RNA sequence: AAGAAUUCUAGCUAUGUUUAUGGGGUAGGAUCCGAGACUCCUUUCGGGGUUCUCACAGACUCUCCUACCCAACUUCCUAUUCCGUAACGUCCGCGUCGUACAGAGCGGUAACUUGCCCCACCGCCUAUCCAAUCUUGGGUACACGGGCUUGUCCCAACCCCUUCGGCGGAUGGUGGUGCAAGGCUGAACAGGAGGGG
Numbered sequence: 001a002a003g004a005a006u007u008c009u010a011g012c013u014a015u016g017u018u019u020a021u022g023g024g025g026u027a028g029g030a031u032c033c034g035a036g037a038c039u040c041c042u043u044u045c046g047g048g049g050u051u052c053u054c055a056c057a058g059a060c061u062c063u064c065c066u067a068c069c070c071a072a073c074u075u076c077c078u079a080u081u082c083c084g085u086a087a088c089g090u091c092c093g094c095g096u097c098g099u100a101c102a103g104a105g106c107g108g109u110a111a112c113u114u115g116c117c118c119c120a121c122c123g124c125c126u127a128u129c130c131a132a133u134c135u136u137g138g139g140u141a142c143a144c145g146g147g148c149u150u151g152u153c154c155c156a157a158c159c160c161c162u163u164c165g166g167c168g169g170a171u172g173g174u175g176g177u178g179c180a181a182g183g184c185u186g187a188a189c190a191g192g193a194g195g196g197g
Stems, first nucleotide, its partner, number of pairs: 011106003015102003023070008033058001074197001076196003080193002083191001087099003091108002112182005119175004127171004135157005159166002